About this RNA: This 92-nucleotide sequence from Seleniivibrio woodruffii belongs to the Rfam family "Selenocysteine transfer RNA". It scores 74 bits against the family's covariance model. NCBI's taxonomy places the organism under Bacteria, Deferribacterota, Deferribacterales, Geovibrionaceae, Seleniivibrio.
RNA sequence: GGGGGUGUGUGGGGUACUGGUGUCCCCUGCGGUCUUCAAAACCGAUGGUGACGCACCUGUGCGUCAGGCGGGUUCGAUUCCCGUGCACCUCC
Number, nucleotide and partner (000 for none) at each position: 001g092002g091003g090004g089005g088006u087007g086008u085009g084010u000011g000012g027013g026014g025015u000016a023017c022018u000019g000020g000021u000022g017023u016024c000025c014026c013027c012028u047029g000030c044031g043032g042033u041034c000035u000036u000037c000038a000039a000040a000041a033042c032043c031044g030045a000046u000047g028048g000049u066050g065051a064052c063053g062054c000055a000056c000057c000058u000059g000060u000061g000062c053063g052064u051065c050066a049067g000068g000069c083070g082071g081072g080073u000074u000075c000076g000077a000078u000079u000080c072081c071082c070083g069084u009085g008086c007087a006088c005089c004090u003091c002092c001